This 132-nucleotide RNA sequence from Mus musculus belongs to the Rfam family "Small nucleolar RNA SNORA24".
Rfam's curators write: ACA24 is a member of the H/ACA class of snoRNA that guide the sites of modification of uridines to pseudouridines.
The family's consensus secondary structure was predicted with RNAfold.
The family has 5 seed sequences and 852 matches in Rfam 15.1.
It scores 83 bits against the family's covariance model.
Its family is annotated with nucleolus and RNA processing in the Gene Ontology.
Rfam classes the family as an H/ACA-box small nucleolar RNA.
[Rfam]
RNA sequence: CUCCAUGUAUCUCUGGACUGGCCAGCUAUGGACGUCUCCUUUCCAAGCCACGGAGGAGCACAUUCUUGCUUAGUGGCAAAGCCAUCACCGUGUCAUUGGUAUCAGAUACACCGACUGGCACAAGGAGCAUCC
Numbered sequence: 001c002u003c004c005a006u007g008u009a010u011c012u013c014u015g016g017a018c019u020g021g022c023c024a025g026c027u028a029u030g031g032a033c034g035u036c037u038c039c040u041u042u043c044c045a046a047g048c049c050a051c052g053g054a055g056g057a058g059c060a061c062a063u064u065c066u067u068g069c070u071u072a073g074u075g076g077c078a079a080a081g082c083c084a085u086c087a088c089c090g091u092g093u094c095a096u097u098g099g100u101a102u103c104a105g106a107u108a109c110a111c112c113g114a115c116u117g118g119c120a121c122a123a124g125g126a127g128c129a130u131c132c
Base pairs, nucleotide, nucleotide: 002054003053004052006050007049015039016038017037019034020033022031023030067129068128069127070126074122075121076119077118079116082105087100088099089098090097